[Rfam]
RNA sequence: UAAAUUUCCUUCUUCAACAGUGCUUGGAGGGAAACUG
Numbered sequence: 001u002a003a004a005u006u007u008c009c010u011u012c013u014u015c016a017a018c019a020g021u022g023c024u025u026g027g028a029g030g031g032a033a034a035c036u037g
Stems, first nucleotide, its partner, number of pairs: 001037002005034005011029001013028005018022001